[Rfam]
RNA sequence: GUCUGUGCGUUUCCAUUUGAGUAUCCUGAAAACGGGCUUUUCAGCAUGGAACGUACAUAUUAAAUAGUAGGAGUGCAUAGUGGCCCGUAUAGCAGGCAUUAACAUUCCUGAU
Numbered sequence: 001g002u003c004u005g006u007g008c009g010u011u012u013c014c015a016u017u018u019g020a021g022u023a024u025c026c027u028g029a030a031a032a033c034g035g036g037c038u039u040u041u042c043a044g045c046a047u048g049g050a051a052c053g054u055a056c057a058u059a060u061u062a063a064a065u066a067g068u069a070g071g072a073g074u075g076c077a078u079a080g081u082g083g084c085c086c087g088u089a090u091a092g093c094a095g096g097c098a099u100u101a102a103c104a105u106u107c108c109u110g111a112u
Base pairs, nucleotide, nucleotide: 004057005056006055007054008053009052010051011050012049013048025096026095027094033087034086035085036084041111042110043109
A member of the RNA family "Alpha operon ribosome binding site" from Escherichia coli, 112 nucleotides long. Rfam classes the family as a cis-regulatory element. Rfam describes the family as follows. The bacterial alpha operon ribosome binding site is surrounded by this complex pseudoknotted structure. Translation of the mRNA produces 4 ribosomal protein products, one of which (S4) acts as a translational repressor by binding to the nested pseudoknot region. The mechanism of repression is thought to involve a conformational switch in the pseudoknot region and ribosome entrapment. The family's consensus secondary structure is taken from published work. Taxonomically the source falls in Escherichia coli O157:H7 (Bacteria, Pseudomonadati, Gammaproteobacteria, Escherichia coli).